This 84-nucleotide sequence from Nostoc sp. T09 belongs to the Rfam family "Photosynthesis regulatory RNA1". It scores 48 bits against the family's covariance model.

[Rfam]
RNA sequence: AAGAUUUUUUGAUUUCGCUAUCGGUAUCUCUGUUCGUCAUUUGUUCUUCUCUGGAUAGCCUCGGUUAGUUUCGCCGGGGUUUUU
Number, nucleotide and partner (000 for none) at each position: 001a000002a000003g000004a000005u000006u000007u000008u000009u000010u000011g000012a000013u000014u000015u000016c000017g000018c000019u000020a000021u000022c000023g000024g000025u000026a000027u000028c000029u000030c000031u000032g000033u000034u000035c000036g000037u000038c000039a000040u000041u000042u000043g000044u000045u000046c000047u000048u000049c000050u000051c000052u000053g000054g000055a000056u000057a000058g080059c079060c078061u077062c076063g075064g074065u073066u000067a000068g000069u000070u000071u000072c000073g065074c064075c063076g062077g061078g060079g059080u058081u000082u000083u000084u000
About the family: Formerly known as Syr1 discovered in Synechocystis sp PCC 6803, is a regulatory factor controlling photosynthetic functions. PsrR1 interacts with the ribosome binding regions of several photosynthesis-related mRNAs. In particular, psaL mRNA is processed by RNase E only in the presence of PsrR1. Taxonomically the source falls in Nostoc (Bacteria, Cyanobacteriota, Cyanophyceae, Nostocales). The family has 13 seed sequences and 92 matches in Rfam 15.1. Its family is annotated with regulation of translation and regulation of photosynthesis in the Gene Ontology. For this family Rfam cites "The small regulatory RNA SyR1/PsrR1 controls photosynthetic functions in cyanobacteria" (Georg et al., Plant Cell, 2014).